Record summary:
RNase MRP: a 247-nucleotide sequence from Macrostomum lignano. Taxonomically the source falls in Macrostomum (Eukaryota, Eumetazoa, Lophotrochozoa, Macrostomorpha). Rfam's curators write: RNase MRP is an enzymatically active ribonucleoprotein with two distinct roles in eukaryotes. The family's RNA type in Rfam is ribozyme. Rfam links the family to the GO terms rRNA processing, ribonuclease MRP complex and ribonuclease MRP activity. The literature on the family includes a 1993 paper in FASEB J by Schmitt et al., "Secondary structure of RNase MRP RNA as predicted by phylogenetic comparison".
[Rfam]
RNA sequence: GUGUAGGUGGUUGCGGCUAAGCAUCGGGGUCACUCAACGGGCUCUUCUGUAGCCCCUGUAUAAUUACCCUGGGACAAACUCCCCGGACCAACUCUGUCAGAGAGUGAAUCUGCUAAGUCAGGCGGCCUCAAUUAGGCGCCUUGCUUCUGUAAUGGAAGUUUAACGGCGCCGAUUGGGCAAUGUCAAUUGGCUUCUAGCCGACAGUUAUCUUGGCGAAAUCUCAAUGGGGGUCAAUGCGCUGCCUACA
Numbered sequence: 001g002u003g004u005a006g007g008u009g010g011u012u013g014c015g016g017c018u019a020a021g022c023a024u025c026g027g028g029g030u031c032a033c034u035c036a037a038c039g040g041g042c043u044c045u046u047c048u049g050u051a052g053c054c055c056c057u058g059u060a061u062a063a064u065u066a067c068c069c070u071g072g073g074a075c076a077a078a079c080u081c082c083c084c085g086g087a088c089c090a091a092c093u094c095u096g097u098c099a100g101a102g103a104g105u106g107a108a109u110c111u112g113c114u115a116a117g118u119c120a121g122g123c124g125g126c127c128u129c130a131a132u133u134a135g136g137c138g139c140c141u142u143g144c145u146u147c148u149g150u151a152a153u154g155g156a157a158g159u160u161u162a163a164c165g166g167c168g169c170c171g172a173u174u175g176g177g178c179a180a181u182g183u184c185a186a187u188u189g190g191c192u193u194c195u196a197g198c199c200g201a202c203a204g205u206u207a208u209c210u211u212g213g214c215g216a217a218a219u220c221u222c223a224a225u226g227g228g229g230g231u232c233a234a235u236g237c238g239c240u241g242c243c244u245a246c247a
Stems, first nucleotide, its partner, number of pairs: 002247010016214006024073001025071006039055005045049001078231002081229004097107003109122004125191003131187003135184003141180006